[Rfam]
RNA sequence: AGAUCGGGAGGCUUCCUUUGGGACGGAGGCCGGGAAUUGAUCGAACUGUUUGGUCGUCUCGGAUGGGGGCGAUGCCGGGGCCCGACGGCAGGCGCA
Numbered sequence: 001a002g003a004u005c006g007g008g009a010g011g012c013u014u015c016c017u018u019u020g021g022g023a024c025g026g027a028g029g030c031c032g033g034g035a036a037u038u039g040a041u042c043g044a045a046c047u048g049u050u051u052g053g054u055c056g057u058c059u060c061g062g063a064u065g066g067g068g069g070c071g072a073u074g075c076c077g078g079g080g081c082c083c084g085a086c087g088g089c090a091g092g093c094g095c096a
Stems, first nucleotide, its partner, number of pairs: 002042004010031007069095003073090005

Rfam assigns this 96-nucleotide RNA from Shimia thalassica to the family "Rhodo-rpoB RNA". The family's RNA type in Rfam is cis-regulatory element.